This 255-nucleotide RNA sequence from Brevibacillus sp. WF146 belongs to the Rfam family "BsrG".

[Rfam]
RNA sequence: CACAAUAGGUGGGCUCCUCAAGGGUGGUCGGUUCAUCCCCGAUAUCGGAAAGGGGGUGAUACCAUGACAGUAUUCGAAGCACUAAGUCUAAUGUUGGCGUUUGGGACUUUAGUCUUAAUGCUGUCGUCUAGUAAAAAGAAGUAGACCUCCCUUGAGCUGAACAGCCAGGGGGUCUACACCCAGGAAUGCAGAGCCGCCCCCCUUUUGGGGAACGUCUAUUGUACUUUCGACCGUAGGGUGUUGCCCCACCCGGCG
Numbered sequence: 001c002a003c004a005a006u007a008g009g010u011g012g013g014c015u016c017c018u019c020a021a022g023g024g025u026g027g028u029c030g031g032u033u034c035a036u037c038c039c040c041g042a043u044a045u046c047g048g049a050a051a052g053g054g055g056g057u058g059a060u061a062c063c064a065u066g067a068c069a070g071u072a073u074u075c076g077a078a079g080c081a082c083u084a085a086g087u088c089u090a091a092u093g094u095u096g097g098c099g100u101u102u103g104g105g106a107c108u109u110u111a112g113u114c115u116u117a118a119u120g121c122u123g124u125c126g127u128c129u130a131g132u133a134a135a136a137a138g139a140a141g142u143a144g145a146c147c148u149c150c151c152u153u154g155a156g157c158u159g160a161a162c163a164g165c166c167a168g169g170g171g172g173u174c175u176a177c178a179c180c181c182a183g184g185a186a187u188g189c190a191g192a193g194c195c196g197c198c199c200c201c202c203u204u205u206u207g208g209g210g211a212a213c214g215u216c217u218a219u220u221g222u223a224c225u226u227u228c229g230a231c232c233g234u235a236g237g238g239u240g241u242u243g244c245c246c247c248a249c250c251c252g253g254c255g
Stems, first nucleotide, its partner, number of pairs: 002222004007217003011213001012195005017156008026146001028144001033059003037056004066125007079094003102117004168181003198210004232255003236251005
Dot-bracket structure: .((((.(((.((((((((((((((.(.(....(((.((((............)))))))......(((((((......(((..........))).......((((........)))).)))))))..................).)..))))))))...........(((........))).........)))))..((((.....))))..).))).)))).........(((.(((((......))))).)))

The literature on the family includes a 2012 paper in Mol Microbiol by Jahn et al., "BsrG/SR4 from Bacillus subtilis--the first temperature-dependent type I toxin-antitoxin system". About the family: bsrE, bsrG and bsrH pair through intermolecular interactions with antisense sRNAs. They form type I toxin/antitoxin system that includes an mRNA encoding for a short, toxic peptide (bsrE, bsrG and bsrH) and an antitoxin that is comprised of an antisense RNA. bsrG encodes a 39-amino-acid toxin, and the 180 nucleotide antisense sRNA called SR4 acts as the antitoxin (they overlap by 123 nucleotides). SR4 interaction with the 3'UTR of bsrG RNA promotes bsrG degradation and inhibits its translation. Rfam 15.1 lists 614 matches to the family in 343 species.